[Rfam]
RNA sequence: CGAUGGGGUAGAGGAGCAGAUUUUAAGAGUACACUGUGUGAGGAUGACAACGGAGAUCACAGUCGAAAGGAACAUCUGCCGAAAUGAUGACUAUUUGUCAAGGUAGUAUCAUUGGGGUUAUCUUAAACAAAGAUAACACUCUCAUAGCAUGAUGUUAUUAUGUUAUGAGGAGCUACAGAUCGU
Numbered sequence: 001c002g003a004u005g006g007g008g009u010a011g012a013g014g015a016g017c018a019g020a021u022u023u024u025a026a027g028a029g030u031a032c033a034c035u036g037u038g039u040g041a042g043g044a045u046g047a048c049a050a051c052g053g054a055g056a057u058c059a060c061a062g063u064c065g066a067a068a069g070g071a072a073c074a075u076c077u078g079c080c081g082a083a084a085u086g087a088u089g090a091c092u093a094u095u096u097g098u099c100a101a102g103g104u105a106g107u108a109u110c111a112u113u114g115g116g117g118u119u120a121u122c123u124u125a126a127a128c129a130a131a132g133a134u135a136a137c138a139c140u141c142u143c144a145u146a147g148c149a150u151g152a153u154g155u156u157a158u159u160a161u162g163u164u165a166u167g168a169g170g171a172g173c174u175a176c177a178g179a180u181c182g183u
Base pairs, nucleotide, nucleotide: 008176009175010174011173016079017078018077019076020075021074023072024071033063034062035061036060037059038058083113084112085111086110087109088108090107091106092105093104094103114140115139117137118136119135120134121133122132123131124130142168143167144166145165146164147163148162149161150160151159